[Rfam]
RNA sequence: ACAAUUGUUUGACGACGAGAGAGAGCACGCUCGUCAGCAUUCAUGUGUGGACAUGAUUGUAUACAAGCGUGCUGUCUAUCGUCGUCAUGAUUUG
Numbered sequence: 001a002c003a004a005u006u007g008u009u010u011g012a013c014g015a016c017g018a019g020a021g022a023g024a025g026c027a028c029g030c031u032c033g034u035c036a037g038c039a040u041u042c043a044u045g046u047g048u049g050g051a052c053a054u055g056a057u058u059g060u061a062u063a064c065a066a067g068c069g070u071g072c073u074g075u076c077u078a079u080c081g082u083c084g085u086c087a088u089g090a091u092u093u094g
Base pairs, nucleotide, nucleotide: 010087011086012085013084014083016081017080020077021076025072026071027070028069029068030067031066033064034063